[Rfam]
This 76-nucleotide sequence from Eptesicus fuscus belongs to the Rfam family "mir-185 microRNA precursor family". Pairs were carried over by alignment from the consensus structure, which was predicted with RNAalifold. It is one of the family's seed sequences. Its family is annotated with RISC complex and miRNA-mediated post-transcriptional gene silencing in the Gene Ontology.
RNA sequence: GGCGAGGGAUUGGAGAGAAAGGCAGUUCCUGAUGGUCCCCUCCCCAGGGGCUGGCUUUCCUCUGGUCCUUCCCUCC
Numbered sequence: 001g002g003c004g005a006g007g008g009a010u011u012g013g014a015g016a017g018a019a020a021g022g023c024a025g026u027u028c029c030u031g032a033u034g035g036u037c038c039c040c041u042c043c044c045c046a047g048g049g050g051c052u053g054g055c056u057u058u059c060c061u062c063u064g065g066u067c068c069u070u071c072c073c074u075c076c
Stems, first nucleotide, its partner, number of pairs: 001073002004071005010065006017059005023053009034043002
On this family, see Cai et al., Proc Natl Acad Sci U S A 2005: "Kaposi's sarcoma-associated herpesvirus expresses an array of viral microRNAs in latently infected cells". The organism belongs to Eptesicus, within Eukaryota.